[Rfam]
RNA sequence: AAGCCAUCCAGAGUGACCGAGAGACCUGGCUCGACGACGUCGCAGCAACCCGCCGCCCGGCGAGGGGACCCUCCCCGCGCGGCACGGUGCUCACGCCAGGAUCGAUGGAGU
Number, nucleotide and partner (000 for none) at each position: 001a111002a000003g000004c108005c107006a106007u105008c104009c000010a000011g000012a000013g043014u042015g041016a040017c039018c000019g000020a000021g032022a031023g030024a000025c000026c099027u098028g097029g096030c023031u022032c021033g000034a000035c000036g000037a000038c000039g017040u016041c015042g014043c013044a091045g090046c089047a088048a000049c087050c086051c000052g083053c082054c081055g080056c000057c000058c000059g000060g000061c000062g000063a000064g000065g000066g000067g000068a000069c000070c000071c000072u000073c000074c000075c000076c000077g000078c000079g000080c055081g054082g053083c052084a000085c000086g050087g049088u047089g046090c045091u044092c000093a000094c000095g103096c029097c028098a027099g026100g000101a000102u000103c095104g008105a007106u006107g005108g004109a000110g000111u001
This 111-nucleotide RNA sequence from Rothia santali belongs to the Rfam family "SAM riboswitch aptamer (S box leader)".
The base pairs follow the family's consensus structure, which is taken from published work.
A search with the family's covariance model found it, with a score of 48 bits.
Clan: SAM clan.
Taxonomically the source falls in Rothia (Bacteria, Bacillati, Actinomycetes, Micrococcaceae).